[Rfam]
RNA sequence: CCGUGCUAGACGGGGAGGUAGCGGUGCCCUGUACUCGCAAUCCGCUGUAGCGAGGUUGAACUCCCUUUCGAGGUCUUCGUAUGGUGAUGCAGCCUUAAGUAAGUGGUGUUGACAUUUGGGUCCUGCGCAACGGAAACUUAUGAACCCUGUCAGGUCCGGAAGGAAGCAGCAGUAAGUAAGACCUUUCGUGUGCCGCGGGGCUGCCUGAAUUGAGCUAACUGCUUAAGAAGCGGUCAUUUUACUUAGAUCGACAAAGGGUGCACGG
Numbered sequence: 001c002c003g004u005g006c007u008a009g010a011c012g013g014g015g016a017g018g019u020a021g022c023g024g025u026g027c028c029c030u031g032u033a034c035u036c037g038c039a040a041u042c043c044g045c046u047g048u049a050g051c052g053a054g055g056u057u058g059a060a061c062u063c064c065c066u067u068u069c070g071a072g073g074u075c076u077u078c079g080u081a082u083g084g085u086g087a088u089g090c091a092g093c094c095u096u097a098a099g100u101a102a103g104u105g106g107u108g109u110u111g112a113c114a115u116u117u118g119g120g121u122c123c124u125g126c127g128c129a130a131c132g133g134a135a136a137c138u139u140a141u142g143a144a145c146c147c148u149g150u151c152a153g154g155u156c157c158g159g160a161a162g163g164a165a166g167c168a169g170c171a172g173u174a175a176g177u178a179a180g181a182c183c184u185u186u187c188g189u190g191u192g193c194c195g196c197g198g199g200g201c202u203g204c205c206u207g208a209a210u211u212g213a214g215c216u217a218a219c220u221g222c223u224u225a226a227g228a229a230g231c232g233g234u235c236a237u238u239u240u241a242c243u244u245a246g247a248u249c250g251a252c253a254a255a256g257g258g259u260g261c262a263c264g265g
Stems, first nucleotide, its partner, number of pairs: 001265006009057003012030004017025001019023001034054005063258006072249005079242003083238006092231002095226006103219002105216003114210008122199006128190002131188005137180005147172004155164003
A member of the RNA family "Bacterial large signal recognition particle RNA" from Terrilactibacillus tamarindi, 265 nucleotides long. Its Rfam clan is "SRP clan". NCBI's taxonomy places the organism under Bacteria, Bacilli, Caryophanales, Bacillaceae, Terrilactibacillus. Rfam describes the family as follows. The signal recognition particle (SRP) is a universally conserved ribonucleoprotein involved in the co-translational targeting of proteins to membranes. Its family is annotated with SRP-dependent cotranslational protein targeting to membrane, signal sequence recognition and signal recognition particle, plasma membrane targeting in the Gene Ontology. The family's consensus secondary structure is taken from published work. On this family, see Rosenblad et al., Nucleic Acids Res 2003: "SRPDB: Signal Recognition Particle Database". Rfam classes the family as a non-coding RNA gene.